[Rfam]
RNA sequence: AGAUUAUUGAAAACAAAAACAUUUUCCUGUAACAGUGGUUUAAACAGGGGUGCACACAGCAAGUGAAUCUCAUCGCCUUUGGGAGUCUGUGGCUGUGCCCCUCAAAGUGAAUUUGGAGGUUCCAUAUCC
Dot-bracket structure: .(..((((........((.(((((......))..))).))........))))..).........(((((((.....(((((((.(.(.........).).)))))))........))))))).......
RNA: Small nucleolar RNA SNORA68